[Rfam]
The family of this 185-nucleotide sequence from Pelagibacterales bacterium SAG-MED30 is "permuted transfer-messenger RNA".
RNA sequence: GACGAUAAACGAAUUUCGUAAUAACCAUUACGGACGUGGGGGCAGUACCCACCACCUCCACCACACAACUUGCGGGGGUGAACUAGAUUCGACGGAUGUCUAAAGGCUAUUCUUUCGUUCGGAAUUGUUCCUCCGAAAAGGGCUAAUUUAUAAUUGCUAACGAAAGUUAUGCACUUGCUGCCUAA
Numbered sequence: 001g002a003c004g005a006u007a008a009a010c011g012a013a014u015u016u017c018g019u020a021a022u023a024a025c026c027a028u029u030a031c032g033g034a035c036g037u038g039g040g041g042g043c044a045g046u047a048c049c050c051a052c053c054a055c056c057u058c059c060a061c062c063a064c065a066c067a068a069c070u071u072g073c074g075g076g077g078g079u080g081a082a083c084u085a086g087a088u089u090c091g092a093c094g095g096a097u098g099u100c101u102a103a104a105g106g107c108u109a110u111u112c113u114u115u116c117g118u119u120c121g122g123a124a125u126u127g128u129u130c131c132u133c134c135g136a137a138a139a140g141g142g143c144u145a146a147u148u149u150a151u152a153a154u155u156g157c158u159a160a161c162g163a164a165a166g167u168u169a170u171g172c173a174c175u176u177g178c179u180g181c182c183u184a185a
Base pairs, nucleotide, nucleotide: 001119002118003117004116005115014109017106026098027097028096031094032093036052037051038050039049040048053080054079055078056077057076058075059074120135121134122133123132

About the family: Bacterial tmRNA, also known as 10Sa RNA or SsrA, is named for its dual tRNA and mRNA-like properties. Its role is to liberate the mRNA from a stalled ribosome. To accomplish this part of the tmRNA is used as a reading frame that ends in a translation stop signal. The broken mRNA is replaced in the ribosome by the tmRNA and translation of the tmRNA leads to addition of a proteolysis tag to the incomplete protein enabling recognition by a protease.
Taxonomically the source falls in Candidatus Pelagibacterales (Bacteria, Pseudomonadati, Pseudomonadota, Alphaproteobacteria).
The base pairs follow the family's consensus structure, which is taken from published work.